[Rfam]
RNA: PyrR binding site
Organism: Orenia marismortui
RNA sequence: UACCUUUUUUAAAUUAGUCCAGAGAGGCUAGUAAGAGGGAUACGGGAUUAGUUAUAGAUAGGUAUCUAUAACUAAGAAUAAAUAUGAGUAUCCAAGGAUCUUCUUACUAGCGUAGGGAGAUCUUUUUUAU
Numbered sequence: 001u002a003c004c005u006u007u008u009u010u011a012a013a014u015u016a017g018u019c020c021a022g023a024g025a026g027g028c029u030a031g032u033a034a035g036a037g038g039g040a041u042a043c044g045g046g047a048u049u050a051g052u053u054a055u056a057g058a059u060a061g062g063u064a065u066c067u068a069u070a071a072c073u074a075a076g077a078a079u080a081a082a083u084a085u086g087a088g089u090a091u092c093c094a095a096g097g098a099u100c101u102u103c104u105u106a107c108u109a110g111c112g113u114a115g116g117g118a119g120a121u122c123u124u125u126u127u128u129a130u
Base pairs, nucleotide, nucleotide: 003038004037005036006035007034008033014031015030016029017028018027019026048075049074050073051072052071053070054069055068056067057066058065094125095124096123097122098121099120100119101118102117103116104115105114106113107112